The family of this 55-nucleotide RNA sequence from Tenebrionibacter intestinalis is "ClpQY promoter".
RNA sequence: CCCUGCAUAUUCAUGCGGGGCGCCUGUACAGCAUUCAAAAAGGGGUCUGCUCGUG
Numbered sequence: 001c002c003c004u005g006c007a008u009a010u011u012c013a014u015g016c017g018g019g020g021c022g023c024c025u026g027u028a029c030a031g032c033a034u035u036c037a038a039a040a041a042g043g044g045g046u047c048u049g050c051u052c053g054u055g
Stems, first nucleotide, its partner, number of pairs: 001020008

Background
On this family, see Lien et al., Open Microbiol J 2009: "Regulation of clpQ(+)Y(+) (hslV(+)U(+)) gene expression in Escherichia coli". It scores 42 bits against the family's covariance model. Gene Ontology term of the family: mRNA stabilization.